L31-Actinobacteria ribosomal protein leader: a 51-nucleotide sequence. A reference for the family is Eckert and Weinberg (2020), "Discovery of 20 novel ribosomal leader candidates in bacteria and archaea", BMC Microbiol. The sequence is in the family's curated seed alignment. The family's RNA type in Rfam is cis-regulatory leader.
RNA sequence: GAGGUUCCGGUUCACGUCCGAUUGCGAGCUUCUCAGGGCGACCCGGCGACC
Numbered sequence: 001g002a003g004g005u006u007c008c009g010g011u012u013c014a015c016g017u018c019c020g021a022u023u024g025c026g027a028g029c030u031u032c033u034c035a036g037g038g039c040g041a042c043c044c045g046g047c048g049a050c051c
Stems, first nucleotide, its partner, number of pairs: 003051003007046004015040005